Rfam assigns this 86-nucleotide RNA from Rhodobacter xanthinilyticus to the family "Glycine riboswitch aptamer". This family represents the bacterial glycine riboswitch. The pairing is the family consensus, mapped onto this sequence. Lineage of the source: Bacteria > Pseudomonadota > Alphaproteobacteria > Rhodobacterales > Rhodobacter.
[Rfam]
RNA sequence: AGGUCAGAAUCGGGAGAAACUGGACAUCCAGUGCCGAAGGAGCAACCGCCCCGGUAAACUCUCAGGCAAAAGGACCGUUCUGAUAA
Dot-bracket structure: ....(((((.(((......((((....)))).(((((..(((...((.....))....))))).))).......))))))))....
Numbered sequence: 001a002g003g004u005c006a007g008a009a010u011c012g013g014g015a016g017a018a019a020c021u022g023g024a025c026a027u028c029c030a031g032u033g034c035c036g037a038a039g040g041a042g043c044a045a046c047c048g049c050c051c052c053g054g055u056a057a058a059c060u061c062u063c064a065g066g067c068a069a070a071a072g073g074a075c076c077g078u079u080c081u082g083a084u085a086a
Stems, first nucleotide, its partner, number of pairs: 005082005011077003020031004033067003036063002040061003046054002